[Rfam]
Overview:
A member of the RNA family "MIR2655 microRNA precursor family" from Medicago truncatula, 280 nucleotides long. The family has 25 seed sequences and 892 matches in Rfam 15.1.
RNA sequence: CUCUUAACUAUUAAAAGUUUCGUUUUGGUCCCUUAACUUAUUUUUUGGUUUCGUUUUGGUCACUUAACUUAUUUUUUGAUUUCGUUUUGGUCCUUAACUCUAAUACAUUCAUCCUAACAUAAAGGACCAAAGUGGUUGACGGAGAAAGAGUUAAGGGACCAAAACGAAACCAAAAAAUAAGUUAAGGGACCAAAACGAAACUUUUAAUAGUUAAGGGACCAAAACAAAACCAAAAAGUAAGUUAAGGGACCAAAACGAAACCAAAAAAUAAGUUAAGGGA
Number, nucleotide and partner (000 for none) at each position: 001c000002u278003c277004u276005u275006a274007a273008c272009u000010a000011u000012u000013a000014a000015a000016a000017g000018u000019u000020u000021c000022g000023u255024u254025u253026u000027g251028g250029u249030c000031c247032c246033u245034u244035a243036a242037c241038u240039u239040a238041u237042u236043u235044u000045u233046u232047g231048g230049u229050u228051u227052c000053g000054u000055u000056u000057u000058g000059g000060u000061c000062a000063c000064u000065u000066a000067a000068c000069u000070u000071a000072u000073u000074u000075u000076u000077u000078g000079a000080u000081u000082u000083c000084g000085u000086u000087u000088u000089g000090g000091u000092c000093c000094u000095u000096a000097a000098c000099u000100c000101u000102a000103a000104u000105a000106c000107a000108u000109u000110c000111a000112u000113c000114c000115u000116a000117a000118c000119a000120u000121a000122a000123a000124g000125g000126a000127c000128c000129a000130a000131a000132g000133u000134g000135g000136u000137u000138g000139a000140c000141g000142g000143a000144g000145a000146a000147a000148g000149a000150g000151u000152u000153a000154a000155g000156g000157g000158a000159c000160c000161a000162a000163a000164a000165c000166g000167a000168a000169a000170c000171c000172a000173a000174a000175a000176a000177a000178u000179a000180a000181g000182u000183u000184a000185a000186g000187g000188g000189a000190c000191c000192a000193a000194a000195a000196c000197g000198a000199a000200a000201c000202u000203u000204u000205u000206a000207a000208u000209a000210g000211u000212u000213a000214a000215g000216g000217g000218a000219c000220c000221a000222a000223a000224a000225c000226a000227a051228a050229a049230c048231c047232a046233a045234a000235a043236a042237g041238u040239a039240a038241g037242u036243u035244a034245a033246g032247g031248g000249a029250c028251c027252a000253a025254a024255a023256c000257g000258a000259a000260a000261c000262c000263a000264a000265a000266a000267a000268a000269u000270a000271a000272g008273u007274u006275a005276a004277g003278g002279g000280a000